This 130-nucleotide sequence from Cyclopterus lumpus belongs to the Rfam family "Small nucleolar RNA SNORA47". NCBI's taxonomy places the organism under Eukaryota, Eumetazoa, Neopterygii, Cyclopteridae, Cyclopterus. The family has 20 seed sequences and 733 matches in Rfam 15.1. It is annotated as an H/ACA-box small nucleolar RNA. Its family is annotated with nucleolus and RNA processing in the Gene Ontology.

RNA sequence: UGGAGGACUGAGAAGGUGGAGCAGCUUGUGCUGUUCUAACUGGUUAGAGCCUCCGAGAGCAACACACAAACCACUCGAUGAAGUGGCUCUGUCACACGCAGAGCCACUCUGCAGUGUUUGUUGACAUCAC
Numbered sequence: 001u002g003g004a005g006g007a008c009u010g011a012g013a014a015g016g017u018g019g020a021g022c023a024g025c026u027u028g029u030g031c032u033g034u035u036c037u038a039a040c041u042g043g044u045u046a047g048a049g050c051c052u053c054c055g056a057g058a059g060c061a062a063c064a065c066a067c068a069a070a071c072c073a074c075u076c077g078a079u080g081a082a083g084u085g086g087c088u089c090u091g092u093c094a095c096a097c098g099c100a101g102a103g104c105c106a107c108u109c110u111g112c113a114g115u116g117u118u119u120g121u122u123g124a125c126a127u128c129a130c
Stems, first nucleotide, its partner, number of pairs: 002054005015041003019036007066121002070118001073115003082108011
A search with the family's covariance model found it, with a score of 51 bits. On this family, see Huttenhofer et al., EMBO J 2001: "RNomics: an experimental approach that identifies 201 candidates for novel, small, non-messenger RNAs in mouse".